[Rfam]
RNA sequence: UGGCUUUAGGGAUGAAUUAGUCCCUAAUACCUAAUAGCCAUCUGCCUUAUUUGGUUGCUUAUGAUCAUUUUGGGAUGGCAAAUGU
Numbered sequence: 001u002g003g004c005u006u007u008a009g010g011g012a013u014g015a016a017u018u019a020g021u022c023c024c025u026a027a028u029a030c031c032u033a034a035u036a037g038c039c040a041u042c043u044g045c046c047u048u049a050u051u052u053g054g055u056u057g058c059u060u061a062u063g064a065u066c067a068u069u070u071u072g073g074g075a076u077g078g079c080a081a082a083u084g085u
Stems, first nucleotide, its partner, number of pairs: 037079006054065004
RNA: Small nucleolar RNA snoR99
Organism: Gossypium gossypioides